[Rfam]
RNA sequence: CGCUCCGAUCAACCCGCAGGGUCGACAGACCAGGGCUCACCGCCCCGGACCGAAGAACAGAUAAAUGCGCAGCCGCCACGGACUGCGUCGAACAAGAAAUUUCGGAUGUACGCGCACCUCGGAGUGAGGUGUGAAAUUCC
Dot-bracket structure: ..((.(((((..(.....))))))..)).((.((((.....)))).))................................................................((((((((.....)))))))).......
Rfam assigns this 140-nucleotide RNA sequence from Pseudomonas sp. 21C1 to the family "proV RNA". NCBI's taxonomy places the organism under Bacteria, Pseudomonadota, Pseudomonadales, Pseudomonadaceae, Pseudomonas.